[Rfam]
RNA sequence: GAAAUAUAACGUAAUAAAUCUCGUAUAUAAUCGAUAAUAUGGAUCGAAAGUUUCUACCUGCAAACCGUAAAAGUGCAGACUACGAGGAGUUGUAUUUCAUUU
Numbered sequence: 001g002a003a004a005u006a007u008a009a010c011g012u013a014a015u016a017a018a019u020c021u022c023g024u025a026u027a028u029a030a031u032c033g034a035u036a037a038u039a040u041g042g043a044u045c046g047a048a049a050g051u052u053u054c055u056a057c058c059u060g061c062a063a064a065c066c067g068u069a070a071a072a073g074u075g076c077a078g079a080c081u082a083c084g085a086g087g088a089g090u091u092g093u094a095u096u097u098c099a100u101u102u
Stems, first nucleotide, its partner, number of pairs: 019087007031047005058078005
A member of the RNA family "Purine riboswitch aptamer" from Clostridium bornimense, 102 nucleotides long. The base pairs follow the family's consensus structure, which is taken from published work. NCBI's taxonomy places the organism under Bacteria, Bacillati, Bacillota, Eubacteriales, Clostridium. The family is grouped with related families in Rfam's "Purine riboswitches". It scores 80 bits against the family's covariance model.